[Rfam]
RNA: Bacillus sRNA ncr1015
Organism: Paenibacillus whitsoniae
RNA sequence: UUGUAAGAUGAAUUACUUAUGUCUAUUUAUCAGUUAGACGGACGUGAAUUGAUUAUAUCAUCGUGCCUAUGGAUGUGCAAUACGAAGAACCCGACAAUUUUUGUCGAGGUUCUUUUUUAG
Numbered sequence: 001u002u003g004u005a006a007g008a009u010g011a012a013u014u015a016c017u018u019a020u021g022u023c024u025a026u027u028u029a030u031c032a033g034u035u036a037g038a039c040g041g042a043c044g045u046g047a048a049u050u051g052a053u054u055a056u057a058u059c060a061u062c063g064u065g066c067c068u069a070u071g072g073a074u075g076u077g078c079a080a081u082a083c084g085a086a087g088a089a090c091c092c093g094a095c096a097a098u099u100u101u102u103g104u105c106g107a108g109g110u111u112c113u114u115u116u117u118u119a120g
Base pairs, nucleotide, nucleotide: 035073038070040066042064043063044062084115085114086113087112088111089110090109091108092106093105094104